This 118-nucleotide RNA from Luteococcus japonicus belongs to the Rfam family "SAM (S-adenosyl methionine) riboswitch aptamer".
The family has 40 seed sequences and 2,360 matches in Rfam 15.1.
SAM-IV is a mRNA element that regulates gene expression via direct sensing of S-adenosylmethionine (SAM or AdoMet). SAM-IV riboswitches share conserved nucleotide positions with the previously described SAM-I riboswitches sequence analysis and molecular recognition experiments suggest that SAM-I and SAM-IV riboswitches share similar ligand binding sites, but have different scaffolds.
NCBI's taxonomy places the organism under Bacteria, Bacillati, Actinomycetota, Luteococcus, Luteococcus japonicus.
The match comes from Rfam's covariance-model search (48 bits).
The base pairs follow the family's consensus structure, which is taken from published work.
A reference for the family is Weinberg et al. (2008), "The aptamer core of SAM-IV riboswitches mimics the ligand-binding site of SAM-I riboswitches", RNA.
RNA sequence: GGUCAAGAGACGCGACGCCAACCCUCUGGAGUGGUCGCGCAGCAACCGGAGCCGCUCCGGUGCUUUCCAGGGAAGACCCGGCCAGCCGGCAGUCCGCCGCGCUGGGCAACAGCGGCCU
Number, nucleotide and partner (000 for none) at each position: 001g078002g077003u076004c075005a000006a000007g000008a000009g040010a000011c039012g038013c037014g036015a035016c034017g000018c000019c000020a000021a032022c031023c000024c000025u000026c000027u000028g000029g000030a000031g022032u021033g000034g016035u015036c014037g013038c012039g011040c009041a064042g063043c062044a000045a000046c060047c059048g058049g000050a056051g000052c000053c000054g000055c000056u050057c000058c048059g047060g046061u000062g043063c042064u041065u000066u000067c000068c000069a000070g000071g000072g000073a000074a000075g004076a003077c002078c001079c000080g000081g107082c106083c105084a103085g102086c101087c099088g098089g097090c096091a000092g000093u000094c000095c000096g090097c089098c088099g087100c000101g086102c085103u084104g000105g083106g082107c081108a000109a000110c000111a000112g000113c000114g000115g000116c000117c000118u000